[Rfam]
Nucleotides: 159
Stems, first nucleotide, its partner, number of pairs: 009069006015110002020107002025105002028102002033099001035097001041092007051084003056080004112158001115155003121133004138149004
Number, partner (000 for none) and nucleotide at each position: 001000c002000a003000u004000a005000g006000c007000u008000c009069c010068g011067a012066u013065u014064g015110u016109u017000g018000g019000c020107a021106g022000a023000a024000c025105a026104g027000c028102g029101a030000u031000u032000a033099g034000a035097a036000a037000a038000g039000a040000a041092a042091g043090a044089u045088c046087a047086g048000c049000u050000a051084a052083g053082u054000c055000c056080u057079u058078u059077g060000g061000a062000c063000c064014u065013g066012g067011u068010u069009g070000a071000c072000u073000u074000a075000c076000u077059c078058a079057g080056g081000a082053g083052c084051u085000a086047c087046u088045g089044a090043u091042u092041u093000c094000a095000a096000c097035u098000c099033c100000g101029u102028c103000a104026c105025u106021u107020u108000g109016a110015a111000c112158a113000c114000a115155a116154u117153g118000a119000a120000u121133u122132a123131u124130a125000c126000a127000a128000g129000u130124u131123a132122u133121a134000u135000c136000u137000u138149g139148g140147c141146u142000u143000u144000u145000c146141a147140g148139c149138u150000c151000u152000g153117c154116a155115u156000c157000a158112u159000u
This 159-nucleotide RNA from Castor canadensis belongs to the Rfam family "Interferon gamma 5' UTR regulatory element".
Its family is annotated with positive regulation of translation in the Gene Ontology.
This family represents a pseudoknot containing stem-loop structure found in the 5' UTR of interferon (IFN) gamma mRNA. This structure is thought to be involved in translational regulation and the pseudoknot has been found to activate PKR which is known to be a translational inhibitor.
The organism belongs to Castor, within Eukaryota.
On this family, see Ben-Asouli et al., Cell 2002: "Human interferon-gamma mRNA autoregulates its translation through a pseudoknot that activates the interferon-inducible protein kinase PKR".
It scores 97 bits against the family's covariance model.